Overview: The family of this 75-nucleotide RNA from Mycobacterium intracellulare is "ASpks TB sRNA". For this family Rfam cites "Identification of small RNAs in Mycobacterium tuberculosis" (Arnvig and Young, Mol Microbiol, 2009). It is annotated as an antisense RNA.
[Rfam]
RNA sequence: UUUGAUCGACCCCAGCCACAGCGGCCGGUCCGCGGGCCGGUCCUGCCCGUAGGUGGCCAGAAGCGCUUGCGCCUC
Numbered sequence: 001u002u003u004g005a006u007c008g009a010c011c012c013c014a015g016c017c018a019c020a021g022c023g024g025c026c027g028g029u030c031c032g033c034g035g036g037c038c039g040g041u042c043c044u045g046c047c048c049g050u051a052g053g054u055g056g057c058c059a060g061a062a063g064c065g066c067u068u069g070c071g072c073c074u075c
Stems, first nucleotide, its partner, number of pairs: 015025003031071003038065002043060003047056003
Annotation: It is one of the family's seed sequences.